[Rfam]
RNA: Small nucleolar RNA snoR109
RNA sequence: UGGCUGUAGCUAAACCAACAAGGAGUUUACUGGCCGAUUGUUGUGAGAUUCAAUCUCUGUUGACAAAUCUGCUUACCGAAUUUCUUACAUUU
Numbered sequence: 001u002g003g004c005u006g007u008a009g010c011u012a013a014a015c016c017a018a019c020a021a022g023g024a025g026u027u028u029a030c031u032g033g034c035c036g037a038u039u040g041u042u043g044u045g046a047g048a049u050u051c052a053a054u055c056u057c058u059g060u061u062g063a064c065a066a067a068u069c070u071g072c073u074u075a076c077c078g079a080a081u082u083u084c085u086u087a088c089a090u091u092u
Base pairs, nucleotide, nucleotide: 020086021085022084023083024082025081026080027079032073033072034071036069037068038067039066040064041063042062043061